Description:
The record is a 118-nucleotide sequence, which matches "FMN riboswitch aptamer (RFN element)" in Rfam.
RNA sequence: AUAUAUUUUCGGGGCGAGGCGCAAUUCCUCACCGAUAGUGAUAGUCUAUGAGCUUGAAAGAGCAGGAUGUGGUGAAAUUCCACGACCGACGGUAUAGUCCGGAUGAGAGAAAAUAUGC
Dot-bracket structure: ..((((((((......(((.......))).[[((((((.....[[))))....(.......).....(((((.......)))))]])).(((....]]))).......))))))))..
Numbered sequence: 001a002u003a004u005a006u007u008u009u010c011g012g013g014g015c016g017a018g019g020c021g022c023a024a025u026u027c028c029u030c031a032c033c034g035a036u037a038g039u040g041a042u043a044g045u046c047u048a049u050g051a052g053c054u055u056g057a058a059a060g061a062g063c064a065g066g067a068u069g070u071g072g073u074g075a076a077a078u079u080c081c082a083c084g085a086c087c088g089a090c091g092g093u094a095u096a097g098u099c100c101g102g103a104u105g106a107g108a109g110a111a112a113a114u115a116u117g118c
Stems, first nucleotide, its partner, number of pairs: 003116008017029003031098002033088002035049004044086002054062001068084005090101003
The family's consensus secondary structure is taken from published work.
It scores 104 bits against the family's covariance model.